[Rfam]
RNA sequence: AGUUCUCAUAUCUGGGGAAGGUAAGAACCUUCGACAAGGUUCGCGCCGAGCGUAGCGAGACAACGACGCAAAGCGGCGGCCCGAAGGGUGAGGAACGCAGUGACGAAUAAUCCUUCCCCCACCACUA
Numbered sequence: 001a002g003u004u005c006u007c008a009u010a011u012c013u014g015g016g017g018a019a020g021g022u023a024a025g026a027a028c029c030u031u032c033g034a035c036a037a038g039g040u041u042c043g044c045g046c047c048g049a050g051c052g053u054a055g056c057g058a059g060a061c062a063a064c065g066a067c068g069c070a071a072a073g074c075g076g077c078g079g080c081c082c083g084a085a086g087g088g089u090g091a092g093g094a095a096c097g098c099a100g101u102g103a104c105g106a107a108u109a110a111u112c113c114u115u116c117c118c119c120c121a122c123c124a125c126u127a
Stems, first nucleotide, its partner, number of pairs: 015118007022110001032090002035087001040085004047057002064078002067075003
Shown here is a 127-nucleotide sequence from Yersinia pestis, a member of the family "RtT RNA". It is one of the family's seed sequences. This family represents a bacterial cis-regulatory element known as RtT RNA. The exact function of RtT is unknown although it is thought that it may be involved in changing the cellular response in relation to amino acid starvation. Rfam classes the family as a cis-regulatory element.